The record is a 75-nucleotide sequence from Medicago truncatula, which matches "MIR2629 microRNA precursor family" in Rfam. A search with the family's covariance model found it, with a score of 63 bits. Gene Ontology terms of the family: RISC complex and miRNA-mediated post-transcriptional gene silencing.
[Rfam]
RNA sequence: UACUGAGGAAUUCCUCGGUAGUUAACUGUCGCCGGUUUCCUAAAAACCUCGGCAGUUAACUGCCGAGAGGGUAUU
Numbered sequence: 001u002a003c004u005g006a007g008g009a010a011u012u013c014c015u016c017g018g019u020a021g022u023u024a025a026c027u028g029u030c031g032c033c034g035g036u037u038u039c040c041u042a043a044a045a046a047c048c049u050c051g052g053c054a055g056u057u058a059a060c061u062g063c064c065g066a067g068a069g070g071g072u073a074u075u
Stems, first nucleotide, its partner, number of pairs: 012071002015068001016065016